[Rfam]
Nucleotides: 218
Stems, first nucleotide, its partner, number of pairs: 002037001003035001006032001013027003017023001043069004048064006078217005097201012110168003121156002124152001127149005133143003170187001172185003
Number, partner (000 for none) and nucleotide at each position: 001000u002037c003035a004000g005000g006032u007000c008000u009000a010000c011000u012000u013027g014026a015025a016000c017023a018000a019000g020000a021000u022000c023017u024000a025015u026014u027013c028000u029000a030000c031000a032006a033000g034000c035003u036000c037002g038000u039000a040000c041000a042000u043069c044068u045067g046066u047000a048064u049063c050062c051061u052060u053059a054000a055000c056000u057000c058000c059053u060052a061051a062050g063049g064048a065000g066046a067045c068044a069043g070000g071000a072000u073000u074000c075000c076000a077000a078217g079216u080215c081214u082213a083000g084000u085000u086000a087000a088000a089000a090000a091000a092000u093000u094000a095000a096000a097201a098200u099199u100198g101197u102196g103195u104194g105193a106192u107191c108190a109000g110168a111167g112166c113000u114000u115000g116000a117000u118000u119000a120000u121156u122155g123000u124152u125000u126000u127149g128148g129147u130146g131145g132000c133143u134142c135141a136000g137000u138000g139000a140000u141135u142134g143133g144000a145131u146130c147129a148128c149127c150000u151000u152124g153000u154000c155122c156121g157000c158000a159000g160000a161000g162000g163000a164000u165000c166112g167111u168110u169000g170187u171000c172185a173184a174183c175000c176000u177000u178000g179000c180000u181000u182000c183174g184173u185172u186000a187170g188000g189000a190108u191107g192106g193105u194104c195103g196102u197101a198100c199099a200098g201097u202000u203000g204000a205000g206000a207000a208000u209000c210000u211000a212000a213082u214081a215080g216079a217078u218000u